[Rfam]
RNA: MIR5269 microRNA precursor family
Organism: Medicago truncatula
RNA sequence: UUGGAUAAAAUCAAUGUAGGACCUACCCUUUGAAAAUGGAAUCCACAUAAAGUGCUGGGACAUACAUUGAUUUUACCCAA
Numbered sequence: 001u002u003g004g005a006u007a008a009a010a011u012c013a014a015u016g017u018a019g020g021a022c023c024u025a026c027c028c029u030u031u032g033a034a035a036a037u038g039g040a041a042u043c044c045a046c047a048u049a050a051a052g053u054g055c056u057g058g059g060a061c062a063u064a065c066a067u068u069g070a071u072u073u074u075a076c077c078c079a080a
Stems, first nucleotide, its partner, number of pairs: 001080004006075013023058003026054001028052005